RNA sequence: GGUCAUGAGUGCCAGCGACAAGCCCCGGCUCGCUGGUCGGCAACCCUCCUUCGCGGUGGGGUGCCCCGGGUGAAGACCUGGCCGCACCCGUCCCGGGUGUGCGCAAGCGCGAACA
Dot-bracket structure: ((((....(.((((((....((......)).)))))))(((..(((.((.....))..))).))).........))))..((((((((((...)))))))).))...........
This 115-nucleotide RNA sequence from a Dermatophilaceae bacterium belongs to the Rfam family "SAM (S-adenosyl methionine) riboswitch aptamer". For this family Rfam cites "The aptamer core of SAM-IV riboswitches mimics the ligand-binding site of SAM-I riboswitches" (Weinberg et al., RNA, 2008). The family's consensus secondary structure is taken from published work.